[Rfam]
RNA sequence: GACGCUAAAACCACUGUUUCUUUUUGAUUUAUUUUUUAUCUCCUAAUCUGGAGGCUGAGCUCGUUUUAAAAAAUAAACCAAAAACGAACAGAAAGCCUCCCAAAGGGAGGCUUUUUUAUU
Numbered sequence: 001g002a003c004g005c006u007a008a009a010a011c012c013a014c015u016g017u018u019u020c021u022u023u024u025u026g027a028u029u030u031a032u033u034u035u036u037u038a039u040c041u042c043c044u045a046a047u048c049u050g051g052a053g054g055c056u057g058a059g060c061u062c063g064u065u066u067u068a069a070a071a072a073a074u075a076a077a078c079c080a081a082a083a084a085c086g087a088a089c090a091g092a093a094a095g096c097c098u099c100c101c102a103a104a105g106g107g108a109g110g111c112u113u114u115u116u117u118a119u120u
Stems, first nucleotide, its partner, number of pairs: 016089004021084006028077007036069003040053004054062001057061001092114010

The record is a 120-nucleotide sequence from Vibrio sp. 99-8-1, which matches "Phenylalanine leader peptide" in Rfam. For this family Rfam cites "Nucleotide sequence of the leader region of the phenylalanine operon of Escherichia coli" (Zurawski et al., Proc Natl Acad Sci U S A, 1978). The source organism's lineage runs through Bacteria, Pseudomonadati, Gammaproteobacteria, Vibrionaceae and Vibrio. Rfam links the family to the GO term cellular amino acid metabolic process. It is annotated as a cis-regulatory leader.